[Rfam]
RNA: Plant signal recognition particle RNA
RNA sequence: GCUGAGUUGGGUAGCGCCUGCUUGUAAUCCUAGCGGAGGCAUUAAGGUAAUUGGACAUUGGUUCGGCACAUGGAUUCGGUUCCAUUGUGGCUCUCCUCGGGCCUGUCCGUUCCAAGCCAGGAGUUGAGUCAGGUGUCUUAUGCGAAGGCUCGGGCCUUGUGGCUCCUAGAGUGGAAGGCACCGCGUGAGGCUGGUUUCACAGAGCAGCGAAAACUUCCCCCUCUUGGCAGUAGAAGGAUAACAGGCUGUUGUCACUUGGAUCCAAUAUGGGUCCAUGGGCCGAUCCUACUUGGACAAUCACUUUU
Numbered sequence: 001g002c003u004g005a006g007u008u009g010g011g012u013a014g015c016g017c018c019u020g021c022u023u024g025u026a027a028u029c030c031u032a033g034c035g036g037a038g039g040c041a042u043u044a045a046g047g048u049a050a051u052u053g054g055a056c057a058u059u060g061g062u063u064c065g066g067c068a069c070a071u072g073g074a075u076u077c078g079g080u081u082c083c084a085u086u087g088u089g090g091c092u093c094u095c096c097u098c099g100g101g102c103c104u105g106u107c108c109g110u111u112c113c114a115a116g117c118c119a120g121g122a123g124u125u126g127a128g129u130c131a132g133g134u135g136u137c138u139u140a141u142g143c144g145a146a147g148g149c150u151c152g153g154g155c156c157u158u159g160u161g162g163c164u165c166c167u168a169g170a171g172u173g174g175a176a177g178g179c180a181c182c183g184c185g186u187g188a189g190g191c192u193g194g195u196u197u198c199a200c201a202g203a204g205c206a207g208c209g210a211a212a213a214c215u216u217c218c219c220c221c222u223c224u225u226g227g228c229a230g231u232a233g234a235a236g237g238a239u240a241a242c243a244g245g246c247u248g249u250u251g252u253c254a255c256u257u258g259g260a261u262c263c264a265a266u267a268u269g270g271g272u273c274c275a276u277g278g279g280c281c282g283a284u285c286c287u288a289c290u291u292g293g294a295c296a297a298u299c300a301c302u303u304u305u
Base pairs, nucleotide, nucleotide: 001040002039003038004023005022006021007020009018010017028037029036030035044304045303046302047301048300050298051297052296053295056292057291059288060287061285063283064282065281066280069277070276071275072274073273074272075271076270077269078263079262081260082259083258084257087255088254089253090252092251100247101246102245103244104243105242106241107237108236110235111234112233114231116228117227118226119225120224121223122222123221126165127164128163129162130161131160133158135156137154138153139152142149143148166171173218174217175216176215177214184209185208186207191202192201193200